The record is a 93-nucleotide RNA sequence from Nicotiana sylvestris, which matches "Small nucleolar RNA snoR109" in Rfam. The family's RNA type in Rfam is H/ACA-box small nucleolar RNA. The organism belongs to Nicotiana, within Eukaryota.
[Rfam]
RNA sequence: UGGCUGUAGCAAUAUGAAAGAUUUUAUUUGAGGAGUUUACUGGUCGGUUGUUGUUCUUUGUCAGCAUAUCUGCUUACCGAACUUCUUACAUUU
Numbered sequence: 001u002g003g004c005u006g007u008a009g010c011a012a013u014a015u016g017a018a019a020g021a022u023u024u025u026a027u028u029u030g031a032g033g034a035g036u037u038u039a040c041u042g043g044u045c046g047g048u049u050g051u052u053g054u055u056c057u058u059u060g061u062c063a064g065c066a067u068a069u070c071u072g073c074u075u076a077c078c079g080a081a082c083u084u085c086u087u088a089c090a091u092u093u
Base pairs, nucleotide, nucleotide: 030087031086032085033084034083035082036081037080042074043073044072046070047069048068050065051064052063053062